[Rfam]
RNA: Saccharopolyspora sRNA 350
RNA sequence: UUGACGGUGUGCUCGUAGGUGCCGGGGUCGGUGGAGGCGAUGGCCUCCUGGCCGUAGUACUCGCCGUCGGCCAUGACGGCGAGGAUGGUCUCCUCGCCGUACUCACCGGCGCCGAUCUUGCUGGCCUUGCCGUGCGCGAUCAGGACGACGCGAUCGGCGGCCCCGCCGCGCUCGACGAUGACGUCGCCGGGCUCGUAGGUUUCCUGCGUGAAGCGGUCGGCGAGCGCCUCCAGCGCCGAGUCGUCGUCGAAGCUGCGCAGCAGCGCGAGCUCGCGCAGCUCCGGCGGCACGACCCGCACGUCGCCGCCCUGCACGGUGAAGCUGAGCCGGCCGUCGCCGAUGUCGUAGGUGAGGCGGCGGUUGACGCGGUAGGUGCCGCCGGCGACGUGGACCCAGGGCAGCAUGCGCAGCAGCCAUCUCGAAGAGAUGUUCUGCAUUUGCGGCUGCGAUUUGGUCGUGGUCGCCAGAUUGCGCGCCGCCUCAGG
Numbered sequence: 001u002u003g004a005c006g007g008u009g010u011g012c013u014c015g016u017a018g019g020u021g022c023c024g025g026g027g028u029c030g031g032u033g034g035a036g037g038c039g040a041u042g043g044c045c046u047c048c049u050g051g052c053c054g055u056a057g058u059a060c061u062c063g064c065c066g067u068c069g070g071c072c073a074u075g076a077c078g079g080c081g082a083g084g085a086u087g088g089u090c091u092c093c094u095c096g097c098c099g100u101a102c103u104c105a106c107c108g109g110c111g112c113c114g115a116u117c118u119u120g121c122u123g124g125c126c127u128u129g130c131c132g133u134g135c136g137c138g139a140u141c142a143g144g145a146c147g148a149c150g151c152g153a154u155c156g157g158c159g160g161c162c163c164c165g166c167c168g169c170g171c172u173c174g175a176c177g178a179u180g181a182c183g184u185c186g187c188c189g190g191g192c193u194c195g196u197a198g199g200u201u202u203c204c205u206g207c208g209u210g211a212a213g214c215g216g217u218c219g220g221c222g223a224g225c226g227c228c229u230c231c232a233g234c235g236c237c238g239a240g241u242c243g244u245c246g247u248c249g250a251a252g253c254u255g256c257g258c259a260g261c262a263g264c265g266c267g268a269g270c271u272c273g274c275g276c277a278g279c280u281c282c283g284g285c286g287g288c289a290c291g292a293c294c295c296g297c298a299c300g301u302c303g304c305c306g307c308c309c310u311g312c313a314c315g316g317u318g319a320a321g322c323u324g325a326g327c328c329g330g331c332c333g334u335c336g337c338c339g340a341u342g343u344c345g346u347a348g349g350u351g352a353g354g355c356g357g358c359g360g361u362u363g364a365c366g367c368g369g370u371a372g373g374u375g376c377c378g379c380c381g382g383c384g385a386c387g388u389g390g391a392c393c394c395a396g397g398g399c400a401g402c403a404u405g406c407g408c409a410g411c412a413g414c415c416a417u418c419u420c421g422a423a424g425a426g427a428u429g430u431u432c433u434g435c436a437u438u439u440g441c442g443g444c445u446g447c448g449a450u451u452u453g454g455u456c457g458u459g460g461u462c463g464c465c466a467g468a469u470u471g472c473g474c475g476c477c478g479c480c481u482c483a484g485g
Stems, first nucleotide, its partner, number of pairs: 006393003010389003013385003021331002024328002028325005038316001041313002043308001045306001051302001053300003057236002060233002063230001066227002068114004078106001081104003085100005120225003125220002130215001133212001134209005142201002146199001151195002156192001158190001160188001162186001164180001167177002237296001243293005248287001252285004257281001259280003263274003332345002335342001355381006364374002394434007402426001404424001406421002410418001440479004446474003449470001450468006